[Rfam]
RNA sequence: UUUGUUUGUCUUGAGUUAAACUUAUCCGAAUUUGACCAAGUUUAUAAAAAAUAUAACAACAACUAUACUACCAAAUAUAUGUACUAUCAAAAUGUAUUCCAUUGUCGAUUUUCAAUAAAAAAAUUUUGGUUUUUGUAGAUGUUGUUAGAUUUUUCUAUAAACUUGGUCAAAGUUGGACAAGUUUGACUCAGGACAAACCAAA
Number, nucleotide and partner (000 for none) at each position: 001u000002u000003u000004g000005u197006u196007u195008g194009u193010c000011u191012u190013g189014a188015g187016u186017u185018a184019a183020a182021c181022u180023u179024a000025u177026c176027c000028g000029a000030a000031u171032u170033u169034g168035a167036c000037c000038a000039a000040g000041u000042u000043u157044a156045u000046a154047a153048a152049a151050a150051a000052u000053a000054u147055a146056a145057c000058a143059a142060c141061a140062a000063c138064u137065a136066u135067a134068c000069u000070a000071c129072c128073a127074a126075a125076u000077a000078u000079a000080u000081g000082u000083a000084c000085u000086a000087u000088c000089a000090a000091a000092a000093u000094g000095u000096a000097u000098u000099c000100c000101a000102u000103u000104g000105u000106c000107g000108a000109u000110u000111u000112u000113c000114a000115a000116u000117a000118a000119a000120a000121a000122a000123a000124u000125u075126u074127u073128g072129g071130u000131u000132u000133u000134u067135g066136u065137a064138g063139a000140u061141g060142u059143u058144g000145u056146u055147a054148g000149a000150u050151u049152u048153u047154u046155c000156u044157a043158u000159a000160a000161a000162c000163u000164u000165g000166g000167u035168c034169a033170a032171a031172g000173u000174u000175g000176g026177a025178c000179a023180a022181g021182u020183u019184u018185g017186a016187c015188u014189c013190a012191g011192g000193a009194c008195a007196a006197a005198c000199c000200a000201a000202a000